Background
This 106-nucleotide RNA sequence from Mycolicibacterium aurum belongs to the Rfam family "Guanidine-I riboswitch aptamer". This family represents a conserved RNA structure found upstream of the ykkC and yxkD genes in Bacillus subtilis and related genes in other bacteria. The function of this family is unclear although it has been suggested that it may function to switch on efflux pumps and detoxification systems in response to harmful environmental molecules. Pairs were carried over by alignment from the consensus structure.
RNA sequence: GUGGGGCGCGUCUAGGGUUCCGCCGUUGUUCGGGUCUGGUCCGAGAGACGCAGGCGGCCGGCACCGAAGCGCGACCGUUCCACGGCGGGACAAAAGCCCGGGAGAC
Number, nucleotide and partner (000 for none) at each position: 001g000002u000003g000004g000005g000006g000007c000008g051009c050010g049011u048012c047013u000014a000015g042016g041017g000018u000019u000020c039021c038022g036023c033024c032025g031026u000027u000028g000029u000030u000031c025032g024033g023034g000035u000036c022037u000038g021039g020040u000041c016042c015043g000044a000045g000046a000047g012048a011049c010050g009051c008052a000053g079054g078055c077056g076057g075058c000059c073060g072061g000062c000063a000064c000065c000066g000067a000068a000069g000070c000071g000072c060073g059074a000075c057076c056077g055078u054079u053080c000081c101082a000083c104084g000085g000086c000087g099088g098089g097090a000091c000092a000093a000094a000095a000096g000097c089098c088099c087100g000101g081102g000103a000104g083105a000106c000